Annotation:
The family of this 37-nucleotide sequence from Niastella yeongjuensis is "DUF805b RNA". Clan: DUF805 clan. Rfam classes the family as a cis-regulatory element. Pairs were carried over by alignment from the consensus structure, which is taken from published work.
RNA sequence: AAGGGGUAAGCCGAAAACCUUUAUAAACGAGUAGGCA
Numbered sequence: 001a002a003g004g005g006g007u008a009a010g011c012c013g014a015a016a017a018c019c020u021u022u023a024u025a026a027a028c029g030a031g032u033a034g035g036c037a
Base pairs, nucleotide, nucleotide: 002021003020004019005018010036011035012034